[Rfam]
RNA sequence: UUAACUCAAAUUUGUAUGCAGUUGGAACAGCGUCCCUGGCAGCAAACGUUCCAACUCCAUACAAAUUUUAGUUA
Numbered sequence: 001u002u003a004a005c006u007c008a009a010a011u012u013u014g015u016a017u018g019c020a021g022u023u024g025g026a027a028c029a030g031c032g033u034c035c036c037u038g039g040c041a042g043c044a045a046a047c048g049u050u051c052c053a054a055c056u057c058c059a060u061a062c063a064a065a066u067u068u069u070a071g072u073u074a
Stems, first nucleotide, its partner, number of pairs: 008068009018058001020056009